[Rfam]
RNA sequence: UGUUGAUGAUGACAAAUCCAAAGGCUUGUUUCUCGGAACAUUUGCAGUGGCCGCCUAAGAUCUUUCGCCUUUGCCAGGCUUGAGAGAUAAUGCUGCUCCAUUCCUUCUUUGGAUGUCUGAAACA
Numbered sequence: 001u002g003u004u005g006a007u008g009a010u011g012a013c014a015a016a017u018c019c020a021a022a023g024g025c026u027u028g029u030u031u032c033u034c035g036g037a038a039c040a041u042u043u044g045c046a047g048u049g050g051c052c053g054c055c056u057a058a059g060a061u062c063u064u065u066c067g068c069c070u071u072u073g074c075c076a077g078g079c080u081u082g083a084g085a086g087a088u089a090a091u092g093c094u095g096c097u098c099c100a101u102u103c104c105u106u107c108u109u110u111g112g113a114u115g116u117c118u119g120a121a122a123c124a
Stems, first nucleotide, its partner, number of pairs: 001124004061087006

The family of this 124-nucleotide RNA sequence from Rhododendron simsii is "Small nucleolar RNA SNORD14". On this family, see Samarsky et al., Nucleic Acids Res 1996: "An essential domain in Saccharomyces cerevisiae U14 snoRNA is absent in vertebrates, but conserved in other yeasts". Taxonomically the source falls in Rhododendron (Eukaryota, Embryophyta, Pentapetalae, Rhodoreae). About the family: U14 small nucleolar RNA (U14 snoRNA) is required for early cleavages of eukaryotic precursor rRNAs. In yeasts, this molecule possess a stem-loop region (known as the Y-domain) which is essential for function. A similar structure, but with a different consensus sequence, is found in plants, but is absent in vertebrates. Rfam links the family to the GO terms RNA processing and nucleolus. It scores 75 bits against the family's covariance model. Rfam classes the family as a C/D-box small nucleolar RNA.